[Rfam]
Nucleotides: 129
Base pairs, nucleotide, nucleotide: 002059003058004057007054014047015046016045017044018043019042021040023039026037027036072122073121074120075119076118079115081113082112088106089105090104092103094101095100
Number, partner (000 for none) and nucleotide at each position: 001000a002059g003058g004057u005000c006000a007054u008000u009000u010000c011000a012000a013000a014047g015046a016045g017044g018043g019042c020000g021040c022000a023039u024000g025000g026037g027036g028000c029000u030000g031000u032000g033000a034000a035000a036027c037026c038000a039023g040021g041000a042019g043018c044017u045016c046015u047014u048000a049000a050000c051000u052000c053000u054007a055000c056000a057004a058003c059002c060000a061000a062000a063000g064000c065000u066000u067000g068000a069000a070000a071000u072122u073121c074120u075119u076118c077000a078000c079115a080000g081113g082112a083000u084000g085000c086000u087000a088106u089105a090104g091000u092103c093000a094101c095100u096000c097000a098000a099000a100095a101094g102000g103092g104090c105089u106088a107000a108000g109000u110000u111000u112082u113081u114000a115079u116000g117000a118076g119075g120074a121073g122072a123000u124000a125000u126000a127000a128000g129000a
A member of the RNA family "Small nucleolar RNA SNORA25" from Balaenoptera musculus, 129 nucleotides long. The match comes from Rfam's covariance-model search (102 bits). The family has 30 seed sequences and 1,129 matches in Rfam 15.1. The family's consensus secondary structure was predicted with RNAfold. It is annotated as an H/ACA-box small nucleolar RNA. ACA25 is a member of the H/ACA class of snoRNA that guide the sites of modification of uridines to pseudouridines.